Shown here is a 127-nucleotide RNA from Nothobranchius furzeri, a member of the family "Small nucleolar RNA SNORA65". The base pairs follow the family's consensus structure, which was predicted with RNAalifold. U65 belongs to the H/ACA class of snoRNAs which are thought to guide the sites of modification of uridines to pseudouridines. Rfam classes the family as an H/ACA-box small nucleolar RNA.
[Rfam]
RNA sequence: CCCGCCACUAUACAUGCCCGCUUCUGUGGCCGAGUAGAGUCCAGUGGAGGCUCAAAGCAACCCGGCUUUAGGAAACAGAGACGCCCACAUAAAUGGGUGUCCCUGUGCCGAAAAGCCCGGAACAGUC
Numbered sequence: 001c002c003c004g005c006c007a008c009u010a011u012a013c014a015u016g017c018c019c020g021c022u023u024c025u026g027u028g029g030c031c032g033a034g035u036a037g038a039g040u041c042c043a044g045u046g047g048a049g050g051c052u053c054a055a056a057g058c059a060a061c062c063c064g065g066c067u068u069u070a071g072g073a074a075a076c077a078g079a080g081a082c083g084c085c086c087a088c089a090u091a092a093a094u095g096g097g098u099g100u101c102c103c104u105g106u107g108c109c110g111a112a113a114a115g116c117c118c119g120g121a122a123c124a125g126u127c
Stems, first nucleotide, its partner, number of pairs: 005047005018034001019032002021029002062120004066115004071109002076105003080101002084097003